[Rfam]
RNA sequence: UCACGAUAACGGCAAACCUGCUGAAAGGCAGCGGCGCAAAGCUACAGGGCCUUCUUGACCUCGGUCAAUGGCAGCCAGCUACCGAA
Numbered sequence: 001u002c003a004c005g006a007u008a009a010c011g012g013c014a015a016a017c018c019u020g021c022u023g024a025a026a027g028g029c030a031g032c033g034g035c036g037c038a039a040a041g042c043u044a045c046a047g048g049g050c051c052u053u054c055u056u057g058a059c060c061u062c063g064g065u066c067a068a069u070g071g072c073a074g075c076c077a078g079c080u081a082c083c084g085a086a
Base pairs, nucleotide, nucleotide: 012037013036018031019030020029021028022027040080041079042078043077047076048075049072050071051070056067057066058065059064
Shown here is an 86-nucleotide RNA sequence from Paenibacillus ginsengarvi, a member of the family "c-di-GMP-I riboswitch aptamer". The family's consensus secondary structure is taken from published work. Its family is annotated with cyclic-di-GMP binding in the Gene Ontology. The match comes from Rfam's covariance-model search (67 bits).